[Rfam]
RNA: mir-2774 microRNA precursor family
RNA sequence: ACAACAUUUGGACCGUCGGUCUACCGAGCAAUAACACCUGCUCGGUGGAAGAUCUUCUCUUUGUCGU
Numbered sequence: 001a002c003a004a005c006a007u008u009u010g011g012a013c014c015g016u017c018g019g020u021c022u023a024c025c026g027a028g029c030a031a032u033a034a035c036a037c038c039u040g041c042u043c044g045g046u047g048g049a050a051g052a053u054c055u056u057c058u059c060u061u062u063g064u065c066g067u
Stems, first nucleotide, its partner, number of pairs: 004064003010058003015053003020049010